[Rfam]
RNA sequence: UCAUGUCCCGGGGACGGUGAGAUUCCGUACCGGCGGUCACAGCCCGCGACCCGGUGGUCGAUCCGCUCGACAACCGGCUGAUCUGGUGGAACUCCAGAGCCGACAGUGAAAGUCUGGAUGGGAGGGAGCAUGG
Numbered sequence: 001u002c003a004u005g006u007c008c009c010g011g012g013g014a015c016g017g018u019g020a021g022a023u024u025c026c027g028u029a030c031c032g033g034c035g036g037u038c039a040c041a042g043c044c045c046g047c048g049a050c051c052c053g054g055u056g057g058u059c060g061a062u063c064c065g066c067u068c069g070a071c072a073a074c075c076g077g078c079u080g081a082u083c084u085g086g087u088g089g090a091a092c093u094c095c096a097g098a099g100c101c102g103a104c105a106g107u108g109a110a111a112g113u114c115u116g117g118a119u120g121g122g123a124g125g126g127a128g129c130a131u132g133g
Stems, first nucleotide, its partner, number of pairs: 003131003006126003015027003029113002031102002033047004042100002051077005082098005104116003

This 133-nucleotide sequence from Actinomyces gaoshouyii belongs to the Rfam family "FMN riboswitch aptamer (RFN element)". The match comes from Rfam's covariance-model search (91 bits). The source organism's lineage runs through Bacteria, Actinomycetota, Actinomycetes, Actinomycetales and Actinomyces.